RNA sequence: UCGAAUUUCGGAGAUGGCAUUCCUCCGUUAACCGCCGCGUGUGUUCACUGCGGAUGAUGAUGCCUACAGACCC
Numbered sequence: 001u002c003g004a005a006u007u008u009c010g011g012a013g014a015u016g017g018c019a020u021u022c023c024u025c026c027g028u029u030a031a032c033c034g035c036c037g038c039g040u041g042u043g044u045u046c047a048c049u050g051c052g053g054a055u056g057a058u059g060a061u062g063c064c065u066a067c068a069g070a071c072c073c
Stems, first nucleotide, its partner, number of pairs: 010026004016064006035053005

Rfam assigns this 73-nucleotide sequence to the family "Fluoride riboswitch aptamer (crcB RNA motif)".